[Rfam]
RNA sequence: CGGAAGGGUAAGGCAACCGCUGAGCCAGUUUUAGAAAAACUGCGUAUCAGAGGAAAGUCCGGACUUCGUAAGAAAAGAUGCUGGAGAAAUUCCAGGGGCCGUAAGGCUACGGAAAGUGCAACAGAAAACAUUCCGCUAUAAAUGAUAUCAUUUAUAGACAGGCUGAAAAAUCCUACUUUAGGAGUAGGAGCUGCUAGGGAGACCUGGUAGACUUGUAAACCCCAUCUGAAGCAAGAGAAAAAGUUAUUUGUCUCUGCAAAAUCCUUUCUAAUGAAAGGCAUAAACUUUUUCAUAAUCGCUUGAGGAGUACAGUAAUGUGCUCCCUAGAUGAAUGGUUGCCCACAAGUAAGAAUUUCUUAUUCGUACUUGUUGACAGAAUCCGGCUUACUCGCUCUUCCGAGCU
Dot-bracket structure: (((((((((..(((((((.(((((((((((.......))))).)).))))....[[[.[[[[[((((........((((((((((.....)))))(((((....)))).)((...(((((............((.((((((((......))))))))...))........((((((.......))))))(((((((((....)))))))).).)))..)))))))))))))...((.((((((.........................(.(((.....))).).)))))).....))......((((((((....))))))))..........)))))))......................................]]]]]]]]....)))))))))....